RNA: Salmonella enterica Typhi npcRNA 44
RNA sequence: CUUUAACAAUCCGGAACAAGCUGAAAAUUUGAAAACAAUGAAUGACGAAAGUUGUUCAGAGUCUCUCAAAAACUUUUACGAUUCAUAGUCGUUGCAAGACGUCUGUGG
Numbered sequence: 001c002u003u004u005a006a007c008a009a010u011c012c013g014g015a016a017c018a019a020g021c022u023g024a025a026a027a028u029u030u031g032a033a034a035a036c037a038a039u040g041a042a043u044g045a046c047g048a049a050a051g052u053u054g055u056u057c058a059g060a061g062u063c064u065c066u067c068a069a070a071a072a073c074u075u076u077u078a079c080g081a082u083u084c085a086u087a088g089u090c091g092u093u094g095c096a097a098g099a100c101g102u103c104u105g106u107g108g
Base pairs, nucleotide, nucleotide: 020079023077024076025075026074028072029071036059040057041056042055043054044053045052046051084107085106086105088103090101091100